[Rfam]
RNA sequence: UGGCAGCCUAGGCCCGCGAACCGAAAAGCGGGAACCCUUCACCCGCCUGGCUGGCACCCAAUUUUAUGAAGG
Dot-bracket structure: ((.(((((..((........)).....(((((...[[[[[[)))))..))))).))..........]]]]]]
Numbered sequence: 001u002g003g004c005a006g007c008c009u010a011g012g013c014c015c016g017c018g019a020a021c022c023g024a025a026a027a028g029c030g031g032g033a034a035c036c037c038u039u040c041a042c043c044c045g046c047c048u049g050g051c052u053g054g055c056a057c058c059c060a061a062u063u064u065u066a067u068g069a070a071g072g
Stems, first nucleotide, its partner, number of pairs: 001056002004053005011022002028046005036072006

Source information: This 72-nucleotide RNA sequence from Duganella fentianensis belongs to the Rfam family "int-alpA RNA". Acidobacteria (1 example), Planctomycetes (1 example), Proteobacteria. Pairs were carried over by alignment from the consensus structure, which is taken from published work. The match comes from Rfam's covariance-model search (53 bits). NCBI's taxonomy places the organism under Bacteria, Pseudomonadota, Betaproteobacteria, Oxalobacteraceae, Duganella. Rfam classes the family as a small RNA.